RNA sequence: GGCCGCCUAGCGCAACGGAUAGCGCUCCGGCCUCCUAAGCCGGGCAUCCGGGUUCGAUUCCCGGGGCGGCCG
Numbered sequence: 001g002g003c004c005g006c007c008u009a010g011c012g013c014a015a016c017g018g019a020u021a022g023c024g025c026u027c028c029g030g031c032c033u034c035c036u037a038a039g040c041c042g043g044g045c046a047u048c049c050g051g052g053u054u055c056g057a058u059u060c061c062c063g064g065g066g067c068g069g070c071c072g
Stems, first nucleotide, its partner, number of pairs: 001071007010025004027043005048064005
Source information
A member of the RNA family "tRNA" from Gordonibacter pamelaeae, 72 nucleotides long. NCBI's taxonomy places the organism under Bacteria, Bacillati, Eggerthellales, Eggerthellaceae, Gordonibacter pamelaeae. Pairs were carried over by alignment from the consensus structure, which is taken from published work. The family's RNA type in Rfam is transfer RNA. Transfer RNA (tRNA) molecules are approximately 80 nucleotides in length.